[Rfam]
Rfam assigns this 205-nucleotide RNA from Peribacillus asahii to the family "Group II catalytic intron D1-D4-5". Gene Ontology term of the family: Group II intron splicing. Pairs were carried over by alignment from the consensus structure. For this family Rfam cites "The ins and outs of group II introns" (Bonen and Vogel, Trends Genet, 2001). Group II introns are found in rRNA, tRNA and mRNA of organelles in fungi, plants and protists, and also in mRNA in bacteria.

RNA sequence: AUAAAGUCCUAUUUUGAAUAGUGGAAUGAUAGGGUAACGCCUUGAAACGCUAUCUUUAAUACUCCGACAUGCUAUGAGUAGAAUGUGUAAUCAAAAGUAGUGUGAAGCUCGGUGAAGUCGGGCGAAAUAUACCGUAGUAUUCAAUUGAAUAACCGAAAAGGCAAUAGAGGUAUUGUCCGUAUAUGAUAGUCCGGAAGUCGUUAAA
Numbered sequence: 001a002u003a004a005a006g007u008c009c010u011a012u013u014u015u016g017a018a019u020a021g022u023g024g025a026a027u028g029a030u031a032g033g034g035u036a037a038c039g040c041c042u043u044g045a046a047a048c049g050c051u052a053u054c055u056u057u058a059a060u061a062c063u064c065c066g067a068c069a070u071g072c073u074a075u076g077a078g079u080a081g082a083a084u085g086u087g088u089a090a091u092c093a094a095a096a097g098u099a100g101u102g103u104g105a106a107g108c109u110c111g112g113u114g115a116a117g118u119c120g121g122g123c124g125a126a127a128u129a130u131a132c133c134g135u136a137g138u139a140u141u142c143a144a145u146u147g148a149a150u151a152a153c154c155g156a157a158a159a160g161g162c163a164a165u166a167g168a169g170g171u172a173u174u175g176u177c178c179g180u181a182u183a184u185g186a187u188a189g190u191c192c193g194g195a196a197g198u199c200g201u202u203a204a205a
Stems, first nucleotide, its partner, number of pairs: 018053006031043004054197004064112004068104008079093001081091001119193005127184006133155002140149002160177007